[Rfam]
RNA sequence: GAGGUCGGCUAGGCGACCGCGUCACCCUCACGGGUGCCGAGGAACGUCCGGGCUCCACAGAGCGGGGUGGUGGGUAACGCCCACCCGGAGUAAUCCGCGAGAUAGUGCCACAGAAAGUAAACCGCCUUCCGCAAGGAAGGUAAGGGUGAAACGGUGGUGUAAGAGACCACCAGAGGUGCGGGUGACCGCAUCUGCUUGGUAAACCUCACCCGGAGCAAGACCAAACAGGUGUCGAUACGGCUGCUCGUCUAGACACCGGGUAGGUCGCUAGAGGUGGCUGGCAACAGUAACCCGAGAGAGAUGGUCGCCCCCGGUUUUCCGGGACAGAACCCGGCGUAUCGGCCGGCCUCUUUU
Numbered sequence: 001g002a003g004g005u006c007g008g009c010u011a012g013g014c015g016a017c018c019g020c021g022u023c024a025c026c027c028u029c030a031c032g033g034g035u036g037c038c039g040a041g042g043a044a045c046g047u048c049c050g051g052g053c054u055c056c057a058c059a060g061a062g063c064g065g066g067g068u069g070g071u072g073g074g075u076a077a078c079g080c081c082c083a084c085c086c087g088g089a090g091u092a093a094u095c096c097g098c099g100a101g102a103u104a105g106u107g108c109c110a111c112a113g114a115a116a117g118u119a120a121a122c123c124g125c126c127u128u129c130c131g132c133a134a135g136g137a138a139g140g141u142a143a144g145g146g147u148g149a150a151a152c153g154g155u156g157g158u159g160u161a162a163g164a165g166a167c168c169a170c171c172a173g174a175g176g177u178g179c180g181g182g183u184g185a186c187c188g189c190a191u192c193u194g195c196u197u198g199g200u201a202a203a204c205c206u207c208a209c210c211c212g213g214a215g216c217a218a219g220a221c222c223a224a225a226c227a228g229g230u231g232u233c234g235a236u237a238c239g240g241c242u243g244c245u246c247g248u249c250u251a252g253a254c255a256c257c258g259g260g261u262a263g264g265u266c267g268c269u270a271g272a273g274g275u276g277g278c279u280g281g282c283a284a285c286a287g288u289a290a291c292c293c294g295a296g297a298g299a300g301a302u303g304g305u306c307g308c309c310c311c312c313g314g315u316u317u318u319c320c321g322g323g324a325c326a327g328a329a330c331c332c333g334g335c336g337u338a339u340c341g342g343c344c345g346g347c348c349u350c351u352u353u354u
Stems, first nucleotide, its partner, number of pairs: 001350010011339001012309007020039002023036005044337003048334005053215004060246004065211005070084005085099001086097004100206002105204002107200003122145002124141007153171006173195001174193008219266004228257006239249003273292003277288004
Bacterial RNase P class A: a 354-nucleotide RNA sequence from Pontimonas salivibrio. The base pairs follow the family's consensus structure, which is taken from published work. A search with the family's covariance model found it, with a score of 316 bits. Gene Ontology terms of the family: dimeric ribonuclease P complex, ribonuclease P activity and tRNA processing.